[Rfam]
RNA sequence: GCGGUUCCGGUUCACGGCUACGCGUAGCCGACCCGGCGACC
Numbered sequence: 001g002c003g004g005u006u007c008c009g010g011u012u013c014a015c016g017g018c019u020a021c022g023c024g025u026a027g028c029c030g031a032c033c034c035g036g037c038g039a040c041c
Base pairs, nucleotide, nucleotide: 003041004040005039007036008035009034010033015030016029017028018027019026020025
This 41-nucleotide RNA sequence from Glycomyces sp. NRRL B-16210 belongs to the Rfam family "L31-Actinobacteria ribosomal protein leader". By type it is a cis-regulatory leader. For this family Rfam cites "Discovery of 20 novel ribosomal leader candidates in bacteria and archaea" (Eckert and Weinberg, BMC Microbiol, 2020). The source organism's lineage runs through Bacteria, Bacillati, Actinomycetota, Actinomycetes and Glycomyces.